[Rfam]
RNA sequence: AGUUGAGAGUUUAAGGCUACUGCAGAAGCACUCACUGUGUAGCCAUGUCAGAUUCCAACAAAUCUGCAAAUUCUGCU
Numbered sequence: 001a002g003u004u005g006a007g008a009g010u011u012u013a014a015g016g017c018u019a020c021u022g023c024a025g026a027a028g029c030a031c032u033c034a035c036u037g038u039g040u041a042g043c044c045a046u047g048u049c050a051g052a053u054u055c056c057a058a059c060a061a062a063u064c065u066g067c068a069a070a071u072u073c074u075g076c077u
Stems, first nucleotide, its partner, number of pairs: 015044004022076006028040003049066006
Description
The family of this 77-nucleotide RNA sequence from Crocodylus porosus is "Mammalian CPEB3 ribozyme". The organism belongs to Crocodylus, within Eukaryota. It scores 51 bits against the family's covariance model.